[Rfam]
Nucleotides: 057
Stems, first nucleotide, its partner, number of pairs: 005029003009023004039057003043054003
Number, partner (000 for none) and nucleotide at each position: 001000g002000g003000g004000u005029g006028u007027c008000a009023g010022c011021u012020g013000c014000a015000u016000c017000g018000u019000g020012c021011a022010g023009c024000g025000g026000g027007g028006a029005c030000a031000g032000g033000u034000c035000a036000a037000u038000g039057c040056g041055u042000c043054g044053g045052u046000c047000g048000g049000g050000c051000c052045g053044c054043c055041a056040c057039g
This 57-nucleotide sequence belongs to the Rfam family "nhaA-I RNA". Acidobacteria, Alphaproteobacteria, Betaproteobacteria and Gammaproteobacteria, Verrucomicrobia, cand. division NC10. It is one of the family's seed sequences. Rfam classes the family as a riboswitch.